[Rfam]
RNA sequence: UGAUGCCCCUUACCCACUGUCGAAGAUCCCCAGUGGGCGAGGGGAUGGCAGGGAUC
Numbered sequence: 001u002g003a004u005g006c007c008c009c010u011u012a013c014c015c016a017c018u019g020u021c022g023a024a025g026a027u028c029c030c031c032a033g034u035g036g037g038c039g040a041g042g043g044g045a046u047g048g049c050a051g052g053g054a055u056c
Stems, first nucleotide, its partner, number of pairs: 006044006013037006025056006
Antizyme RNA frameshifting stimulation element: a 56-nucleotide RNA sequence from Nannospalax galili.
The family has 13 seed sequences and 1,595 matches in Rfam 15.1.
Its family is annotated with translational frameshifting in the Gene Ontology.
The base pairs follow the family's consensus structure, which is taken from published work.
It scores 72 bits against the family's covariance model.
It is annotated as a frameshift element.